[Rfam]
This 97-nucleotide RNA sequence from Paenibacillus aquistagni belongs to the Rfam family "Glycine riboswitch aptamer". Rfam's curators write: This family represents the bacterial glycine riboswitch. Glycine riboswitches usually consist of two metabolite-binding aptamers domains with similar structures in tandem. The aptamers cooperatively bind glycine to regulate the expression of downstream genes. In Bacillus subtilis, this riboswitch is found upstream of the gcvT operon which controls glycine degradation. Its family is annotated with glycine biosynthetic process in the Gene Ontology.
RNA sequence: AUGAAGGUAAAGGGAGAGAUUACAGCACUAUCGUAACGCCGAAGGAGUAAGCCGAAGCAUCGGUGAAUCUCUCAGGCAAAAGGACUUUUACCGGACG
Number, nucleotide and partner (000 for none) at each position: 001a000002u000003g000004a000005a000006g092007g091008u090009a089010a088011a087012g086013g085014g000015a000016g000017a000018g000019a000020u036021u035022a034023c033024a000025g000026c000027a000028c000029u000030a000031u000032c000033g023034u022035a021036a020037c000038g077039c076040c075041g073042a072043a000044g000045g071046a070047g069048u000049a000050a000051g064052c063053c062054g061055a000056a000057g000058c000059a000060u000061c054062g053063g052064u051065g000066a000067a000068u000069c047070u046071c045072u042073c041074a000075g040076g039077c038078a000079a000080a000081a000082g000083g000084a000085c013086u012087u011088u010089u009090a008091c007092c006093g000094g000095a000096c000097g000